[Rfam]
RNA sequence: GAGCAGACAGUUAUCCCUUUCUAGCUUGAUAUCUGUGGCUCUAGAGGGAGUCAGUCUGCCAAAUUAAACAGAGAAGGCUCUGCCUUUGUCCAGCACGGUUAGGCACUGAUGCGGGCUGCAGGCUUUCUGUACACCA
Dot-bracket structure: ..((((((...........(((((((..........))..)))))........)))))).........((((((....(((......(((...((..............))..)))...))).)))))).......

About this RNA:
Small nucleolar RNA SNORA56: a 136-nucleotide RNA sequence from Chelonoidis abingdonii. ACA56 is a member of the H/ACA class of snoRNA that guide the sites of modification of uridines to pseudouridines. Rfam links the family to the GO terms RNA processing and nucleolus. The family's RNA type in Rfam is H/ACA-box small nucleolar RNA.